[Rfam]
Nucleotides: 107
Base pairs, nucleotide, nucleotide: 001085003083005082006081007080008079009078010077011076015045016044023036026034053070054069055068056067057066058065
Number, partner (000 for none) and nucleotide at each position: 001085c002000a003083c004000a005082c006081g007080u008079a009078a010077g011076g012000c013000a014000u015045g016044g017000g018000a019000u020000u021000u022000u023036c024000c025000g026034g027000g028000a029000g030000a031000a032000a033000u034026c035000c036023g037000g038000a039000u040000c041000g042000u043000u044016c045015c046000g047000c048000c049000g050000g051000u052000g053070a054069g055068c056067g057066c058065a059000u060000u061000g062000c063000g064000g065058u066057g067056c068055g069054c070053u071000c072000g073000a074000c075000g076011c077010c078009u079008u080007g081006c082005g083003g084000a085001g086000g087000u088000u089000c090000a091000a092000c093000c094000g095000g096000a097000a098000a099000a100000g101000g102000a103000g104000a105000c106000a107000a